[Rfam]
RNA sequence: ACCGCGCCAAGGAUUGAAGCGGCAUCCUUUACGCGUAGCGGAAAGAUAGAGCGGAAAGCCUGGUCCUGU
Numbered sequence: 001a002c003c004g005c006g007c008c009a010a011g012g013a014u015u016g017a018a019g020c021g022g023c024a025u026c027c028u029u030u031a032c033g034c035g036u037a038g039c040g041g042a043a044a045g046a047u048a049g050a051g052c053g054g055a056a057a058g059c060c061u062g063g064u065c066c067u068g069u
Base pairs, nucleotide, nucleotide: 010061011060012059014057015056019052020051024047025046026045030042032040033039034038
RNA: Flavo-1 RNA
Organism: Gilvibacter sp. SZ-19